[Rfam]
RNA sequence: GUUUCGGGCCGUGACUGGCGUUCGGGUGGAGUACCACCGGGGAGCGGCCCGGCCUGUAGCCGCGCGCCUGGGUGAUCCGA
Numbered sequence: 001g002u003u004u005c006g007g008g009c010c011g012u013g014a015c016u017g018g019c020g021u022u023c024g025g026g027u028g029g030a031g032u033a034c035c036a037c038c039g040g041g042g043a044g045c046g047g048c049c050c051g052g053c054c055u056g057u058a059g060c061c062g063c064g065c066g067c068c069u070g071g072g073u074g075a076u077c078c079g080a
Stems, first nucleotide, its partner, number of pairs: 004052009015041002017068005026037004057075001059073003

ZMP/ZTP riboswitch aptamer (pfl RNA motif): an 80-nucleotide sequence from Amycolatopsis bartoniae. Taxonomically the source falls in Amycolatopsis (Bacteria, Actinomycetes, Pseudonocardiales, Pseudonocardiaceae). Its family is annotated with regulation of purine nucleotide biosynthetic process and one-carbon metabolic process in the Gene Ontology.